[Rfam]
RNA sequence: AAACGACAACUCUCUGGGUUCCUCGAGUACUUUCAUCUCAGUGUAAUCCUCAUCAGUUGUUGGAGAGA
Numbered sequence: 001a002a003a004c005g006a007c008a009a010c011u012c013u014c015u016g017g018g019u020u021c022c023u024c025g026a027g028u029a030c031u032u033u034c035a036u037c038u039c040a041g042u043g044u045a046a047u048c049c050u051c052a053u054c055a056g057u058u059g060u061u062g063g064a065g066a067g068a
Stems, first nucleotide, its partner, number of pairs: 004062007016049003025039002
Dot-bracket structure: ...(((((((.....(((......((...........)).......)))......)))))))......
Rfam assigns this 68-nucleotide RNA sequence from Leishmania braziliensis to the family "Trypanosomatid snoRNA TB10Cs5H3".
On this family, see Myslyuk et al., BMC Bioinformatics 2008: "Psiscan: a computational approach to identify H/ACA-like and AGA-like non-coding RNA in trypanosomatid genomes".
Lineage of the source: Eukaryota > Discoba > Kinetoplastea > Leishmania > Leishmania braziliensis.
Its family is annotated with RNA processing and nucleolus in the Gene Ontology.